The record is an 89-nucleotide sequence from Derxia gummosa, which matches "Glycine riboswitch aptamer" in Rfam.
Rfam links the family to the GO term glycine biosynthetic process.
Pairs were carried over by alignment from the consensus structure.
RNA sequence: ACACCGCACGCGGGAGAGCGCGCCGCCUGUCGGCGCCGCCGAAGGCGCAACCCCCGAAAUCGCUCAGGCCCCCGAACCGCAUGCAGGCA
Numbered sequence: 001a002c003a004c005c006g007c008a009c010g011c012g013g014g015a016g017a018g019c020g021c022g023c024c025g026c027c028u029g030u031c032g033g034c035g036c037c038g039c040c041g042a043a044g045g046c047g048c049a050a051c052c053c054c055c056g057a058a059a060u061c062g063c064u065c066a067g068g069c070c071c072c073c074g075a076a077c078c079g080c081a082u083g084c085a086g087g088c089a
Base pairs, nucleotide, nucleotide: 006084007083008082010080011079012078013077020036021035022034023033038069039068040067041065042064045063046062047061051056